About this RNA: FMN riboswitch aptamer (RFN element): a 152-nucleotide RNA sequence from Solimonas marina. Gene Ontology term of the family: FMN binding. The base pairs follow the family's consensus structure, which is taken from published work.

RNA sequence: CGCGGCUCUCGGGGCGGGGUGAAAUUCCCCACCGGCGGUGAUGGCGAGCGAUCGCACAAGCCCGCGGGCGCCCGGUCCUGACGGACCGGGGACGAGCAGAUUUCGGUGAGAUUCCGAAGCCGACGGUAGAGUCCGGUUACGAGAAUGCUGAU
Numbered sequence: 001c002g003c004g005g006c007u008c009u010c011g012g013g014g015c016g017g018g019g020u021g022a023a024a025u026u027c028c029c030c031a032c033c034g035g036c037g038g039u040g041a042u043g044g045c046g047a048g049c050g051a052u053c054g055c056a057c058a059a060g061c062c063c064g065c066g067g068g069c070g071c072c073c074g075g076u077c078c079u080g081a082c083g084g085a086c087c088g089g090g091g092a093c094g095a096g097c098a099g100a101u102u103u104c105g106g107u108g109a110g111a112u113u114c115c116g117a118a119g120c121c122g123a124c125g126g127u128a129g130a131g132u133c134c135g136g137u138u139a140c141g142a143g144a145a146u147g148c149u150g151a152u
Stems, first nucleotide, its partner, number of pairs: 003150004009144002017029003031132002033122002035065004060120002068097002102118005124135003
Dot-bracket structure: ..((((..((......(((.......))).[[((((((.....................[[))))..((..........................))....(((((.......)))))]])).(((....]]))).......))..))))..

A search with the family's covariance model found it, with a score of 90 bits.